[Rfam]
RNA: MIR8565 microRNA precursor family
RNA sequence: UCCACACCCAUGUGUGUAGGACUCCAAAGGAUCACCAUUAAAUUUGGCACAUAUCUCUAGCAAAGUUAUCACUUGGGUAUGAGACUUUACUUUUCUAGGGAUCUGUGCCAAAUUUAAUGGCGAUCCUUUGUGGUCCUACAUACAUGGGUGUGGG
Numbered sequence: 001u002c003c004a005c006a007c008c009c010a011u012g013u014g015u016g017u018a019g020g021a022c023u024c025c026a027a028a029g030g031a032u033c034a035c036c037a038u039u040a041a042a043u044u045u046g047g048c049a050c051a052u053a054u055c056u057c058u059a060g061c062a063a064a065g066u067u068a069u070c071a072c073u074u075g076g077g078u079a080u081g082a083g084a085c086u087u088u089a090c091u092u093u094u095c096u097a098g099g100g101a102u103c104u105g106u107g108c109c110a111a112a113u114u115u116a117a118u119g120g121c122g123a124u125c126c127u128u129u130g131u132g133g134u135c136c137u138a139c140a141u142a143c144a145u146g147g148g149u150g151u152g153g154g
Stems, first nucleotide, its partner, number of pairs: 002153012015140009025130004030125003035120017053102008062093005068087001069082003